[Rfam]
RNA sequence: AGGCCUGGAGAGAGAAGCAGGGUCUGAUCCUUAGCCUUUGUGGCAGUUUUUGAUCAGCAUUUGCCUCUCUCUUUCGCUCUG
Numbered sequence: 001a002g003g004c005c006u007g008g009a010g011a012g013a014g015a016a017g018c019a020g021g022g023u024c025u026g027a028u029c030c031u032u033a034g035c036c037u038u039u040g041u042g043g044c045a046g047u048u049u050u051u052g053a054u055c056a057g058c059a060u061u062u063g064c065c066u067c068u069c070u071c072u073u074u075c076g077c078u079c080u081g
Base pairs, nucleotide, nucleotide: 008073009072010071011070012069013068014067015066017064018063019062020061024057025056026055027054028053029052033048034047035046